[Rfam]
RNA sequence: CCUACGGAGAGUACAUAAUAAUGUAAGUACUGAUUAGGGACAUCUAUCAGGAAAGCAUACUCGAUGAAGUAGGAA
Numbered sequence: 001c002c003u004a005c006g007g008a009g010a011g012u013a014c015a016u017a018a019u020a021a022u023g024u025a026a027g028u029a030c031u032g033a034u035u036a037g038g039g040a041c042a043u044c045u046a047u048c049a050g051g052a053a054a055g056c057a058u059a060c061u062c063g064a065u066g067a068a069g070u071a072g073g074a075a
Stems, first nucleotide, its partner, number of pairs: 001073005009062005022057003030050003036045002

RAGATH-18 RNA: a 75-nucleotide sequence.
About the family: Actinobacteria, Firmicutes, Fusobacteria, Thermotogae (1 example).
By type it is a small RNA.